[Rfam]
RNA sequence: AGCACCGACGUGGGAGAGACCGCCUGGCGAUCACCGGGGCGGCGCCGAAGGGGCAAAUCCUCCCCGGAACCUCUCAGGCAGAAGGACCACGUCGGGUCA
Numbered sequence: 001a002g003c004a005c006c007g008a009c010g011u012g013g014g015a016g017a018g019a020c021c022g023c024c025u026g027g028c029g030a031u032c033a034c035c036g037g038g039g040c041g042g043c044g045c046c047g048a049a050g051g052g053g054c055a056a057a058u059c060c061u062c063c064c065c066g067g068a069a070c071c072u073c074u075c076a077g078g079c080a081g082a083a084g085g086a087c088c089a090c091g092u093c094g095g096g097u098c099a
Stems, first nucleotide, its partner, number of pairs: 006094008020042006044079003047075002051073003058066001
A member of the RNA family "Glycine riboswitch aptamer" from Verrucosispora sioxanthis, 99 nucleotides long. Rfam links the family to the GO term glycine biosynthetic process.